[Rfam]
RNA sequence: GCAGGGGCCUAAGUAGUAGUGCCGCAGGUCACUGAUUCGAGAUCACCUGCUCUCUGCUACUUAAGACCCUGC
Numbered sequence: 001g002c003a004g005g006g007g008c009c010u011a012a013g014u015a016g017u018a019g020u021g022c023c024g025c026a027g028g029u030c031a032c033u034g035a036u037u038c039g040a041g042a043u044c045a046c047c048u049g050c051u052c053u054c055u056g057c058u059a060c061u062u063a064a065g066a067c068c069c070u071g072c
Stems, first nucleotide, its partner, number of pairs: 001072006010063010024050006
Rfam assigns this 72-nucleotide RNA from Soboliphyme baturini to the family "mir-252 microRNA precursor family".
It scores 56 bits against the family's covariance model.
Clan: mir-252 microRNA precursor family.
On this family, see Li et al., BMC Genomics 2009: "Direct sequencing and expression analysis of a large number of miRNAs in Aedes aegypti and a multi-species survey of novel mosquito miRNAs".
The base pairs follow the family's consensus structure, which was predicted with RNAalifold.